[Rfam]
RNA: S10-Clostridia ribosomal protein leader
Organism: Harryflintia acetispora
RNA sequence: GAUAUGCGUUGAAGCGGGAGGUUGCCGCAGUUUGCGGGUAAUUUCCGCCGAGUAUGUCCGAUUUCAAACCGGGCGACUU
Numbered sequence: 001g002a003u004a005u006g007c008g009u010u011g012a013a014g015c016g017g018g019a020g021g022u023u024g025c026c027g028c029a030g031u032u033u034g035c036g037g038g039u040a041a042u043u044u045c046c047g048c049c050g051a052g053u054a055u056g057u058c059c060g061a062u063u064u065c066a067a068a069c070c071g072g073g074c075g076a077c078u079u
Base pairs, nucleotide, nucleotide: 014048015047016046018045019044020043021042025037026036027035028034029033056077057076058075062073063072064071